RNA sequence: GUGGGCUACGGAGACAUGUACCCCGGGACGGUCUGGGGGAAGCUGGUCGGCUCAAUGUGCGCCAUCGCCGGCGUGCUCACCAUCUCGCUGCCAGUCCCUGUCAUUGUGUCCAAC
Numbered sequence: 001g002u003g004g005g006c007u008a009c010g011g012a013g014a015c016a017u018g019u020a021c022c023c024c025g026g027g028a029c030g031g032u033c034u035g036g037g038g039g040a041a042g043c044u045g046g047u048c049g050g051c052u053c054a055a056u057g058u059g060c061g062c063c064a065u066c067g068c069c070g071g072c073g074u075g076c077u078c079a080c081c082a083u084c085u086c087g088c089u090g091c092c093a094g095u096c097c098c099u100g101u102c103a104u105u106g107u108g109u110c111c112a113a114c
Base pairs, nucleotide, nucleotide: 001114002113004111005110007108008107009106010105011104013102014101015100016099018097020095021094037077038076040074049063050062051061
Source information:
The family of this 114-nucleotide RNA from Esox lucius is "Potassium channel RNA editing signal". Its family is annotated with adenosine to inosine editing in the Gene Ontology. The base pairs follow the family's consensus structure, which is taken from published work.